Rfam assigns this 178-nucleotide RNA sequence from Anabaena sp. to the family "Antisense RNA which regulates isiA expression". Taxonomically the source falls in Anabaena (Bacteria, Cyanophyceae, Nostocales, Nostocaceae). Pairs were carried over by alignment from the consensus structure, which was predicted with PFOLD.
[Rfam]
RNA sequence: GAUAGCCAUAGAUAACAAAGGGGUUGAGGGUGGGAUGGUUAACUACUCUGACAACCUGAGUUGUUGCGUCGUAUAGUCCUCCCCAAAACAUAGCUUUUCCUACCAGUAAUAAAGCUGCCAUGCCUAAAAACAGGAGGUGAUGCCCUAAAAUCAAACCGAGUUGUUUCGGGUCGUUCCA
Dot-bracket structure: .......................................................................................................................................((((((..((.((................)).))))))))...